Annotation
The record is a 265-nucleotide RNA from Nannospalax galili, which matches "Small Cajal body specific RNA 6" in Rfam. Pairs were carried over by alignment from the consensus structure, which is taken from published work. Rfam's curators write: U88 is small Cajal body specific RNA (scaRNA). scaRNAs are a novel class of small nuclear RNAs which localise to the Cajal bodies. Rfam 15.1 lists 1,309 matches to the family in 627 species. By type it is a small Cajal body RNA.
[Rfam]
RNA sequence: GGUCAAUGAUGAAUAGUAAAAGGUCUGACUUCCCAGGUCACCUCCCAGCAGCCUACAUCCCCAGCUUCUUCUUCCCCAUCAGGAGCUAGUAGUGCUGUGAUAGGCAGAAACAGUAGCUAAACAUACAGUGAUGUUCCCAUUCUGUGCUCCCUGACAAGCCCAGGGAAGACACCCUGGUUGGCAUCCAACAGCUUAAUCACAAAGGGAUUUGAUUGUUGGGAAUGCUGGUGUCUGUGGCUAUGAUCAGUUAUUUUUAGCUGAGACC
Numbered sequence: 001g002g003u004c005a006a007u008g009a010u011g012a013a014u015a016g017u018a019a020a021a022g023g024u025c026u027g028a029c030u031u032c033c034c035a036g037g038u039c040a041c042c043u044c045c046c047a048g049c050a051g052c053c054u055a056c057a058u059c060c061c062c063a064g065c066u067u068c069u070u071c072u073u074c075c076c077c078a079u080c081a082g083g084a085g086c087u088a089g090u091a092g093u094g095c096u097g098u099g100a101u102a103g104g105c106a107g108a109a110a111c112a113g114u115a116g117c118u119a120a121a122c123a124u125a126c127a128g129u130g131a132u133g134u135u136c137c138c139a140u141u142c143u144g145u146g147c148u149c150c151c152u153g154a155c156a157a158g159c160c161c162a163g164g165g166a167a168g169a170c171a172c173c174c175u176g177g178u179u180g181g182c183a184u185c186c187a188a189c190a191g192c193u194u195a196a197u198c199a200c201a202a203a204g205g206g207a208u209u210u211g212a213u214u215g216u217u218g219g220g221a222a223u224g225c226u227g228g229u230g231u232c233u234g235u236g237g238c239u240a241u242g243a244u245c246a247g248u249u250a251u252u253u254u255u256a257g258c259u260g261a262g263a264c265c
Stems, first nucleotide, its partner, number of pairs: 001265004034247001036245004043221007058207004063118004068113001075104002078101004083096001128186001130185006143171003148166006